[Rfam]
RNA sequence: CAGGCUUGCUGGAGCUCCGCAGCGGCGCCUGGGUCAUAUAUUAGGGGGCCCGACACCGUAGUAAUUCCGGAGCUUAA
Numbered sequence: 001c002a003g004g005c006u007u008g009c010u011g012g013a014g015c016u017c018c019g020c021a022g023c024g025g026c027g028c029c030u031g032g033g034u035c036a037u038a039u040a041u042u043a044g045g046g047g048g049c050c051c052g053a054c055a056c057c058g059u060a061g062u063a064a065u066u067c068c069g070g071a072g073c074u075u076a077a
Stems, first nucleotide, its partner, number of pairs: 012075008023058003030052004035046001

ybhL leader: a 77-nucleotide RNA sequence from Aliirhizobium cellulosilyticum. For this family Rfam cites "Evidence for a second class of S-adenosylmethionine riboswitches and other regulatory RNA motifs in alpha-proteobacteria" (Corbino et al., Genome Biol, 2005). The source organism's lineage runs through Bacteria, Pseudomonadati, Pseudomonadota, Rhizobiaceae and Aliirhizobium. The base pairs follow the family's consensus structure. Gene Ontology term of the family: regulation of gene expression. About the family: This family is a putative regulatory RNA structure that is found upstream of an uncharacterized membrane protein in alpha-proteobacteria.